The record is a 92-nucleotide sequence from Coxiella burnetii, which matches "t44 RNA" in Rfam. The organism belongs to Coxiella burnetii, within Bacteria. The base pairs follow the family's consensus structure, which was predicted with LocARNA. This family consists of a number of bacterial RNA genes of between 135 and 170 bases in length. The t44 gene has been identified in several species of enteric bacteria but homologs have also been identified in Pseudomonas and Coxiella species. The t44 gene is found between the map and rpsB genes in all species in the full alignment apart from Shigella flexneri. The match comes from Rfam's covariance-model search (72 bits). It is annotated as a small RNA.
[Rfam]
RNA sequence: UAAAAGUGCGGCAAAAUACACACACUUAUCGGCACAUGAUCCCGGGUGCCCUGUUUCGACGGGUCGGGUCAUGGGGUAGGUGGAGGUUUAAC
Dot-bracket structure: ......................((((((((....((((((((.....((((.........)))).)))))))).))))))))..........